[Rfam]
RNA sequence: AGGUAGCAUCCAAAAGAUAAGAUGACUGCCCGAUACAAGCUUCCUAGAGUAAAAUUGUCAUUUCCUGCUUGUGGUAUUGUUAUCAAGUUCUGCAAGUCUCAAAUGAUAAGACAGCUUC
Dot-bracket structure: .((.((((((..........)))).)).)).........................(.(........((((((((.(((.......))).))))))))...........).).......
Numbered sequence: 001a002g003g004u005a006g007c008a009u010c011c012a013a014a015a016g017a018u019a020a021g022a023u024g025a026c027u028g029c030c031c032g033a034u035a036c037a038a039g040c041u042u043c044c045u046a047g048a049g050u051a052a053a054a055u056u057g058u059c060a061u062u063u064c065c066u067g068c069u070u071g072u073g074g075u076a077u078u079g080u081u082a083u084c085a086a087g088u089u090c091u092g093c094a095a096g097u098c099u100c101a102a103a104u105g106a107u108a109a110g111a112c113a114g115c116u117u118c
Stems, first nucleotide, its partner, number of pairs: 002030002005027002007024004056111001058109001067097008076088003